[Rfam]
RNA sequence: GGUUUGAAGUUUCCUCGGCAGUUAACUGCAGUCGGAUUUUUAAUUCCUCGACAGUUAACUGCCGAGGGGAUA
Numbered sequence: 001g002g003u004u005u006g007a008a009g010u011u012u013c014c015u016c017g018g019c020a021g022u023u024a025a026c027u028g029c030a031g032u033c034g035g036a037u038u039u040u041u042a043a044u045u046c047c048u049c050g051a052c053a054g055u056u057a058a059c060u061g062c063c064g065a066g067g068g069g070a071u072a
Stems, first nucleotide, its partner, number of pairs: 012068002015065014